[Rfam]
RNA: c-di-GMP-I riboswitch aptamer
Organism: Desulforudis audaxviator
RNA sequence: ACCCCGAAAGGGCAAACCGGUACGAAAGUCCGGGACGCAAAGCUACGGGUCCUUAAGUUCCAUGGGGAAUAGGACGGCUGAGCCGCUGGG
Numbered sequence: 001a002c003c004c005c006g007a008a009a010g011g012g013c014a015a016a017c018c019g020g021u022a023c024g025a026a027a028g029u030c031c032g033g034g035a036c037g038c039a040a041a042g043c044u045a046c047g048g049g050u051c052c053u054u055a056a057g058u059u060c061c062a063u064g065g066g067g068a069a070u071a072g073g074a075c076g077g078c079u080g081a082g083c084c085g086c087u088g089g090g
Stems, first nucleotide, its partner, number of pairs: 012038002017033004022029002042083003046080003049075003058069004